[Rfam]
RNA: Small nucleolar RNA SNORD19
Organism: Geococcyx californianus
RNA sequence: GAGCUAUGAAGAUUUUAAAGGGAUCUGAGAUUCCAUUGAAGACAGAAGAUCCAACUCUGAGCUCGCAGCC
Numbered sequence: 001g002a003g004c005u006a007u008g009a010a011g012a013u014u015u016u017a018a019a020g021g022g023a024u025c026u027g028a029g030a031u032u033c034c035a036u037u038g039a040a041g042a043c044a045g046a047a048g049a050u051c052c053a054a055c056u057c058u059g060a061g062c063u064c065g066c067a068g069c070c
Stems, first nucleotide, its partner, number of pairs: 001064004